[Rfam]
RNA sequence: AGAGGUUACAAGUUUGAGGGCAGAAGCGCUCACAGCAUGGCCCUGUCAGAUUUCAACAAAAUCUGUGAAUUCUGCU
Numbered sequence: 001a002g003a004g005g006u007u008a009c010a011a012g013u014u015u016g017a018g019g020g021c022a023g024a025a026g027c028g029c030u031c032a033c034a035g036c037a038u039g040g041c042c043c044u045g046u047c048a049g050a051u052u053u054c055a056a057c058a059a060a061a062u063c064u065g066u067g068a069a070u071u072c073u074g075c076u
Base pairs, nucleotide, nucleotide: 014040019076020075021074022073023072024071025070026038028036047065048064049063050062051061052060053059